[Rfam]
RNA sequence: AUUAUUCAAAAUAGAAUUUUGCGUAUAACAGCUUUAAUAAGGUAAGCAAGUCUCUACCCUAGACCGUAAAUCUAGGACUACGCAAAGAAAAUAUCAUUAU
Numbered sequence: 001a002u003u004a005u006u007c008a009a010a011a012u013a014g015a016a017u018u019u020u021g022c023g024u025a026u027a028a029c030a031g032c033u034u035u036a037a038u039a040a041g042g043u044a045a046g047c048a049a050g051u052c053u054c055u056a057c058c059c060u061a062g063a064c065c066g067u068a069a070a071u072c073u074a075g076g077a078c079u080a081c082g083c084a085a086a087g088a089a090a091a092u093a094u095c096a097u098u099a100u
Base pairs, nucleotide, nucleotide: 018086019085020084021083022082023081024080025079031047032046033045034044058076059075060074061073062072063071
Description:
Shown here is a 100-nucleotide RNA from Candidatus Izimoplasma sp. HR1, a member of the family "Purine riboswitch aptamer". Taxonomically the source falls in Candidatus Izemoplasma (Bacteria, Mycoplasmatota, Mollicutes, Candidatus Izemoplasmataceae). The base pairs follow the family's consensus structure, which is taken from published work.